[Rfam]
RNA sequence: UAACGAAAGAAGCAUGGUAAUGUACAUAUAAAUUGAUUGAGUCUCUAGGCCUACCCUUUCUAAUGUCAUUUGGCUUUGAUUUGGGGGCAUGGUUCUGCAGGUAAAUG
Numbered sequence: 001u002a003a004c005g006a007a008a009g010a011a012g013c014a015u016g017g018u019a020a021u022g023u024a025c026a027u028a029u030a031a032a033u034u035g036a037u038u039g040a041g042u043c044u045c046u047a048g049g050c051c052u053a054c055c056c057u058u059u060c061u062a063a064u065g066u067c068a069u070u071u072g073g074c075u076u077u078g079a080u081u082u083g084g085g086g087g088c089a090u091g092g093u094u095c096u097g098c099a100g101g102u103a104a105a106u107g
Stems, first nucleotide, its partner, number of pairs: 012025001014023002039090001041088003049080001051078001054073002
Rfam assigns this 107-nucleotide sequence from Rhododendron simsii to the family "Small nucleolar RNA snoR100". For this family Rfam cites "Experimental RNomics: identification of 140 candidates for small non-messenger RNAs in the plant Arabidopsis thaliana" (Marker et al., Curr Biol, 2002). By type it is an H/ACA-box small nucleolar RNA. Its family is annotated with RNA processing and nucleolus in the Gene Ontology.